[Rfam]
RNA sequence: CUGAAAAGGUGUAUCUCACGACUCUAAAGAAAAGAGAUGUUUAAAUGCUAGUCUUAAAAAAGGCGACAUUGCCAAAUUGCGGGGAGGCCCUAAAGAUUCAACUACUAAGCAGUUUGUGGAAACACAGCUGUGGCCGAGUUAAUAGCCCUGGGUAUAGUAACAAUGUUGAAUAUGAAUCUUUUGCGAGAUGAAAUGGGUGAUCCGCAGCCAAGUCCUAAGGGCAUUUUGUCUAUGGAUGCAGUUCACAGACCAAAUGGCAAUGGGUAUCUGGAAAUAUGAUGCUUAAGAUAUGGUCGGGCUUCUUUCGAAAGAAUGAA
Numbered sequence: 001c002u003g004a005a006a007a008g009g010u011g012u013a014u015c016u017c018a019c020g021a022c023u024c025u026a027a028a029g030a031a032a033a034g035a036g037a038u039g040u041u042u043a044a045a046u047g048c049u050a051g052u053c054u055u056a057a058a059a060a061a062g063g064c065g066a067c068a069u070u071g072c073c074a075a076a077u078u079g080c081g082g083g084g085a086g087g088c089c090c091u092a093a094a095g096a097u098u099c100a101a102c103u104a105c106u107a108a109g110c111a112g113u114u115u116g117u118g119g120a121a122a123c124a125c126a127g128c129u130g131u132g133g134c135c136g137a138g139u140u141a142a143u144a145g146c147c148c149u150g151g152g153u154a155u156a157g158u159a160a161c162a163a164u165g166u167u168g169a170a171u172a173u174g175a176a177u178c179u180u181u182u183g184c185g186a187g188a189u190g191a192a193a194u195g196g197g198u199g200a201u202c203c204g205c206a207g208c209c210a211a212g213u214c215c216u217a218a219g220g221g222c223a224u225u226u227u228g229u230c231u232a233u234g235g236a237u238g239c240a241g242u243u244c245a246c247a248g249a250c251c252a253a254a255u256g257g258c259a260a261u262g263g264g265u266a267u268c269u270g271g272a273a274a275u276a277u278g279a280u281g282c283u284u285a286a287g288a289u290a291u292g293g294u295c296g297g298g299c300u301u302c303u304u305u306c307g308a309a310a311g312a313a314u315g316a317a
Stems, first nucleotide, its partner, number of pairs: 005025001007023002010020003067262005073256002078206006088197003207242002212237004220230004246296001248295005264282005271275001302315001304313003

Rfam assigns this 317-nucleotide RNA from Pneumocystis murina to the family "Group I catalytic intron". Its family is annotated with Group I intron splicing in the Gene Ontology. The family's consensus secondary structure is taken from published work. The source organism's lineage runs through Eukaryota, Fungi, Ascomycota, Pneumocystomycetes and Pneumocystis murina.